[Rfam]
RNA: Small Cajal body specific RNA 24
RNA sequence: UGGAUGCUUAAGGUUUUUCUUGGUUUCUCCUGUAUAUGGUGAUAACCGUGCGAAAGCAUCCUACAGUAAUACAGAAGCCAUCUGUUUAACCCUGGCAAGUUAACAGGGGUUAGAUCGUUCCACUUCUGACAGUU
Numbered sequence: 001u002g003g004a005u006g007c008u009u010a011a012g013g014u015u016u017u018u019c020u021u022g023g024u025u026u027c028u029c030c031u032g033u034a035u036a037u038g039g040u041g042a043u044a045a046c047c048g049u050g051c052g053a054a055a056g057c058a059u060c061c062u063a064c065a066g067u068a069a070u071a072c073a074g075a076a077g078c079c080a081u082c083u084g085u086u087u088a089a090c091c092c093u094g095g096c097a098a099g100u101u102a103a104c105a106g107g108g109g110u111u112a113g114a115u116c117g118u119u120c121c122a123c124u125u126c127u128g129a130c131a132g133u134u
Stems, first nucleotide, its partner, number of pairs: 002061008022047004026042002029039002072128006091107004